[Rfam]
RNA: c-di-GMP-I riboswitch aptamer
RNA sequence: GUUCGAAAAAGGCAAACCACUCGAAAGGGUGGGACGCAAAGCCAGCGGCCUACGUCCUCAAAUACCAAAGGAUAAGGCGGCAGGGUUGCCGGG
Numbered sequence: 001g002u003u004c005g006a007a008a009a010a011g012g013c014a015a016a017c018c019a020c021u022c023g024a025a026a027g028g029g030u031g032g033g034a035c036g037c038a039a040a041g042c043c044a045g046c047g048g049c050c051u052a053c054g055u056c057c058u059c060a061a062a063u064a065c066c067a068a069a070g071g072a073u074a075a076g077g078c079g080g081c082a083g084g085g086u087u088g089c090c091g092g093g
Stems, first nucleotide, its partner, number of pairs: 012037002017032006040087004047081001048078003055072004